[Rfam]
Rfam assigns this 103-nucleotide sequence to the family "L4-Archaeoglobi ribosomal protein leades". Pairs were carried over by alignment from the consensus structure, which is taken from published work. The family's RNA type in Rfam is cis-regulatory leader.
RNA sequence: CUGAAGGCCGCGUCCGGGUCAAUUCCCCGCUGCGGGAACACCCGAUCUCCCUGCUCGUCCCCUCCGAGAUGGAGGUGCGAGCGGGAGAGCGCGUCACCAUCAG
Numbered sequence: 001c002u003g004a005a006g007g008c009c010g011c012g013u014c015c016g017g018g019u020c021a022a023u024u025c026c027c028c029g030c031u032g033c034g035g036g037a038a039c040a041c042c043c044g045a046u047c048u049c050c051c052u053g054c055u056c057g058u059c060c061c062c063u064c065c066g067a068g069a070u071g072g073a074g075g076u077g078c079g080a081g082c083g084g085g086a087g088a089g090c091g092c093g094u095c096a097c098c099a100u101c102a103g
Base pairs, nucleotide, nucleotide: 001103002102003101004100009093010092011091012090013089015044016043017042018041023038024037025036026035027034046088047087048086049085050084053082054081055080056079057078